[Rfam]
RNA sequence: CAGUGCAGUCACUCAUAAAGUAGACAGCACUACUAAAGGUCUCUACACGGUGUAGUGUUUCCUACUUUAUGGAUGAGUGUACUGU
Numbered sequence: 001c002a003g004u005g006c007a008g009u010c011a012c013u014c015a016u017a018a019a020g021u022a023g024a025c026a027g028c029a030c031u032a033c034u035a036a037a038g039g040u041c042u043c044u045a046c047a048c049g050g051u052g053u054a055g056u057g058u059u060u061c062c063u064a065c066u067u068u069a070u071g072g073a074u075g076a077g078u079g080u081a082c083u084g085u
Stems, first nucleotide, its partner, number of pairs: 014071010026059008
RNA: mir-142 microRNA precursor family